[Rfam]
The family of this 117-nucleotide RNA from Rhodovarius crocodyli is "ALIL pseudoknot". The literature on the family includes a 2008 paper in J Biol Chem by Mazauric et al., "Apical loop-internal loop RNA pseudoknots: a new type of stimulator of -1 translational frameshifting in bacteria". The organism belongs to Rhodovarius, within Bacteria.
RNA sequence: GGCGUAUUUCGCCCAGGCGGAGCUCGACCGCCGGUUCAAGCCAUGAUCGGCUUUAUAGAUGAUCAUCGCGACACAUACGGGGUCGAGCCGAUCUGCAAGAUCCUGCCGAUCGCCCCG
Numbered sequence: 001g002g003c004g005u006a007u008u009u010c011g012c013c014c015a016g017g018c019g020g021a022g023c024u025c026g027a028c029c030g031c032c033g034g035u036u037c038a039a040g041c042c043a044u045g046a047u048c049g050g051c052u053u054u055a056u057a058g059a060u061g062a063u064c065a066u067c068g069c070g071a072c073a074c075a076u077a078c079g080g081g082g083u084c085g086a087g088c089c090g091a092u093c094u095g096c097a098a099g100a101u102c103c104u105g106c107c108g109a110u111c112g113c114c115c116c117g
Stems, first nucleotide, its partner, number of pairs: 016032005078117005089112002092109002095106003
The family's RNA type in Rfam is cis-regulatory element. Rfam 15.1 lists 2,146 matches to the family in 1,098 species. A search with the family's covariance model found it, with a score of 116 bits. The base pairs follow the family's consensus structure, which is taken from published work.